[Rfam]
This 117-nucleotide RNA sequence from Coprinopsis cinerea belongs to the Rfam family "U5 spliceosomal RNA". The literature on the family includes a 1997 paper in Nucleic Acids Res by Zwieb, "The uRNA database". Rfam's curators put it in the seed alignment. NCBI's taxonomy places the organism under Eukaryota, Basidiomycota, Agaricomycotina, Agaricomycetes, Coprinopsis cinerea. U5 RNA is a component of both types of known spliceosome. The precise function of this molecule is unknown, though it is known that the 5' loop is required for splice site selection and p220 binding, and that both the 3' stem-loop and the Sm site are important for Sm protein binding and cap methylation. It is annotated as a spliceosomal small nuclear RNA.

Nucleotides: 117
Base pairs, nucleotide, nucleotide: 003080004079005078006077009067010066011065012064013063015061016060018058019057027053028052029051030050031049032048033047034046098116099115100114101113102112
Number, partner (000 for none) and nucleotide at each position: 001000c002000g003080c004079a005078g006077c007000a008000g009067u010066g011065g012064g013063a014000a015061c016060g017000u018058c019057a020000a021000a022000c023000a024000g025000a026000c027053a028052a029051u030050c031049c032048c033047c034046u035000c036000g037000c038000c039000u040000u041000u042000u043000a044000c045000u046034a047033g048032g049031g050030g051029a052028u053027u054000c055000c056000g057019u058018g059000c060016c061015g062000c063013u064012c065011c066010c067009a068000c069000a070000c071000u072000a073000u074000a075000a076000u077006g078005c079004u080003g081000c082000g083000u084000u085000u086000c087000a088000a089000u090000c091000u092000u093000u094000g095000g096000a097000a098116a099115c100114u101113c102112u103000c104000u105000c106000c107000u108000c109000g110000a111000a112102g113101g114100a115099g116098u117000c